[Rfam]
RNA sequence: CCUCCUUUUCUUGGCGGGGCCCGGGUGUGUAGUCCCGUACCCCGUUAUGUGCGGAGGUAGAGGGAAAGGGCUCUGGCCCACUCGGCGUCAUGUCUUCGGUGCCGGCGGCUUCCCGUCUGCCGGUCCUAUCCUCAAACGCCGGGACACUG
Number, nucleotide and partner (000 for none) at each position: 001c057002c056003u055004c054005c053006u000007u000008u000009u000010c000011u000012u000013g000014g000015c044016g043017g042018g041019g040020c000021c000022c037023g036024g035025g034026u000027g000028u000029g000030u000031a000032g000033u000034c025035c024036c023037g022038u000039a000040c019041c018042c017043c016044g015045u000046u000047a000048u000049g000050u000051g000052c000053g005054g004055a003056g002057g001058u000059a000060g000061a000062g000063g000064g000065a000066a000067a000068g000069g000070g000071c000072u000073c000074u000075g000076g000077c000078c000079c000080a000081c000082u000083c141084g140085g139086c138087g137088u136089c000090a000091u000092g000093u000094c000095u000096u000097c000098g000099g000100u000101g000102c123103c122104g121105g120106c119107g118108g117109c000110u000111u000112c000113c000114c000115g000116u000117c108118u107119g106120c105121c104122g103123g102124u000125c000126c000127u000128a000129u000130c000131c000132u000133c000134a000135a000136a088137c087138g086139c085140c084141g083142g000143g000144a000145c000146a000147c000148u000149g000
RNA: Small nucleolar RNA SNORA57
Organism: Otolemur garnettii